[Rfam]
RNA sequence: AACCCCCCCCCGCCUUUUGGGUUUUUUCCCCUUUUUUCCCACCUUUAAAAAUUUCCAAAAAUUUUAAAAAAGGGGAAAAAACCCAAAAAAAAACCCCCCCCAAAACGGGGGGGGGGGUUUUUUUUU
Number, nucleotide and partner (000 for none) at each position: 001a000002a000003c000004c000005c000006c000007c000008c000009c000010c000011c000012g000013c000014c000015u000016u087017u086018u085019g084020g000021g082022u081023u080024u079025u078026u077027u076028c075029c074030c073031c072032u071033u070034u069035u000036u067037u066038c000039c000040c000041a000042c000043c000044u000045u000046u000047a000048a000049a000050a000051a000052u000053u000054u000055c000056c000057a000058a000059a000060a000061a000062u000063u000064u000065u000066a037067a036068a000069a034070a033071a032072g031073g030074g029075g028076a027077a026078a025079a024080a023081a022082c021083c000084c019085a018086a017087a016088a000089a000090a000091a120092a119093a118094c117095c116096c115097c114098c113099c112100c111101c000102a000103a000104a000105a000106c000107g000108g000109g000110g000111g100112g099113g098114g097115g096116g095117g094118u093119u092120u091121u000122u000123u000124u000125u000126u000
RNA: Phenylalanine leader peptide